[Rfam]
RNA sequence: AUUGCUCACUCUCCCUCAAGGGCUUCUGAAUUUGCCUGUGUUUAAUGGCUUAAACUGAAGCGCUGGAGGGGAGAGUGGAUAA
Numbered sequence: 001a002u003u004g005c006u007c008a009c010u011c012u013c014c015c016u017c018a019a020g021g022g023c024u025u026c027u028g029a030a031u032u033u034g035c036c037u038g039u040g041u042u043u044a045a046u047g048g049c050u051u052a053a054a055c056u057g058a059a060g061c062g063c064u065g066g067a068g069g070g071g072a073g074a075g076u077g078g079a080u081a082a
Stems, first nucleotide, its partner, number of pairs: 006078010017066001019064002022061005
Source information:
The family of this 82-nucleotide RNA sequence from Gossypium australe is "MIR473 microRNA precursor family". The base pairs follow the family's consensus structure, which was predicted with WAR. The organism belongs to Gossypium, within Eukaryota. Gene Ontology terms of the family: RISC complex and miRNA-mediated post-transcriptional gene silencing.